The family of this 109-nucleotide RNA is "eL15-Euryarchaeota ribosomal protein leader". The literature on the family includes a 2020 paper in BMC Microbiol by Eckert and Weinberg, "Discovery of 20 novel ribosomal leader candidates in bacteria and archaea".

[Rfam]
RNA sequence: CCUGCCGCGUCGCGUUUCGAGGGGACGCCCCUCGCGCGAUCCACAGGACGGGAUGUGAACCGCGCUCUCGGUUCGGAGGUCGGAGACCUCCCGCGGUUUGAACCACUCG
Numbered sequence: 001c002c003u004g005c006c007g008c009g010u011c012g013c014g015u016u017u018c019g020a021g022g023g024g025a026c027g028c029c030c031c032u033c034g035c036g037c038g039a040u041c042c043a044c045a046g047g048a049c050g051g052g053a054u055g056u057g058a059a060c061c062g063c064g065c066u067c068u069c070g071g072u073u074c075g076g077a078g079g080u081c082g083g084a085g086a087c088c089u090c091c092c093g094c095g096g097u098u099u100g101a102a103c104c105a106c107u108c109g
Base pairs, nucleotide, nucleotide: 001047002046003045004044050104051103057099058098059097060096061095062094063093064092